RNA sequence: UCGGGGCGUUCUAUCUAAACUUCUCAAAAGGAAGCAAGGUAGAUGCGUGGUUGCGCGUCCUGAAUUAUGGCAUUGUUUUCGGGUUAAAUCCCACUUAACAAUUAAAAAAUUAAGCAAAAGACAACCACCUUUCCCGCUGACAAUAGCGUUAUCCCUCUGCACUUCGGUAAUAUGAGGGCACAGUAAAUCCCGCAAGGAUGAGAAUGUGAUGUGGAAUGAGUAAAUCUAAGGUGAGGAGGCAUCCUCUUUAGUCCGCAAGACACUUGGUUGAAAAGAAAGCAUAUAUAAGCUGGAAAGUACAUGGUAGUUAGUCUACUCGCUAUCCUAGUUACUUUGGAGUAAUCUAAAGUGUGUGUAAACGGGCGAAAGUCUGUAAAAUACUGGGGACAUAGGGUCAACACUCAGCCU
Numbered sequence: 001u002c003g004g005g006g007c008g009u010u011c012u013a014u015c016u017a018a019a020c021u022u023c024u025c026a027a028a029a030g031g032a033a034g035c036a037a038g039g040u041a042g043a044u045g046c047g048u049g050g051u052u053g054c055g056c057g058u059c060c061u062g063a064a065u066u067a068u069g070g071c072a073u074u075g076u077u078u079u080c081g082g083g084u085u086a087a088a089u090c091c092c093a094c095u096u097a098a099c100a101a102u103u104a105a106a107a108a109a110u111u112a113a114g115c116a117a118a119a120g121a122c123a124a125c126c127a128c129c130u131u132u133c134c135c136g137c138u139g140a141c142a143a144u145a146g147c148g149u150u151a152u153c154c155c156u157c158u159g160c161a162c163u164u165c166g167g168u169a170a171u172a173u174g175a176g177g178g179c180a181c182a183g184u185a186a187a188u189c190c191c192g193c194a195a196g197g198a199u200g201a202g203a204a205u206g207u208g209a210u211g212u213g214g215a216a217u218g219a220g221u222a223a224a225u226c227u228a229a230g231g232u233g234a235g236g237a238g239g240c241a242u243c244c245u246c247u248u249u250a251g252u253c254c255g256c257a258a259g260a261c262a263c264u265u266g267g268u269u270g271a272a273a274a275g276a277a278a279g280c281a282u283a284u285a286u287a288a289g290c291u292g293g294a295a296a297g298u299a300c301a302u303g304g305u306a307g308u309u310a311g312u313c314u315a316c317u318c319g320c321u322a323u324c325c326u327a328g329u330u331a332c333u334u335u336g337g338a339g340u341a342a343u344c345u346a347a348a349g350u351g352u353g354u355g356u357a358a359a360c361g362g363g364c365g366a367a368a369g370u371c372u373g374u375a376a377a378a379u380a381c382u383g384g385g386g387a388c389a390u391a392g393g394g395u396c397a398a399c400a401c402u403c404a405g406c407c408u
Base pairs, nucleotide, nucleotide: 001063002062003061004060005059006058007057008056009055010043011042012039015038016037020034021033022032023031024030047128048127049126050125051124052123053122114193115192129297130296131295132294133293134292136290137289138288144322145321146320147319148318153178154177155176156175157174158172161168162167179208180207181206182205187199188198189197190196211282212281214280224268225267226266251261252260253259306317307316308315310314324385325384326383327382328381329380330351331350332349333348334347335346336345337344353401354400355399359374360373361372362371363370364369393407394406395405